[Rfam]
RNA sequence: CGGCGGGACACCUCUCCCCAACGAGAGGCUUCCAUCUGAAAGGAUGGCUCUG
Numbered sequence: 001c002g003g004c005g006g007g008a009c010a011c012c013u014c015u016c017c018c019c020a021a022c023g024a025g026a027g028g029c030u031u032c033c034a035u036c037u038g039a040a041a042g043g044a045u046g047g048c049u050c051u052g
Stems, first nucleotide, its partner, number of pairs: 011028006032047006

Record summary:
The record is a 52-nucleotide RNA sequence from Roseiarcus fermentans, which matches "serC leader" in Rfam. The pairing is the family consensus, mapped onto this sequence. The literature on the family includes a 2005 paper in Genome Biol by Corbino et al., "Evidence for a second class of S-adenosylmethionine riboswitches and other regulatory RNA motifs in alpha-proteobacteria". By type it is a cis-regulatory leader. This family is a putative regulatory RNA structure that is found upstream of the serC-serA operon in some alpha-proteobacteria. The final stem of the structure overlaps the ribosome binding site of the serC reading frame. Rfam links the family to the GO term regulation of gene expression.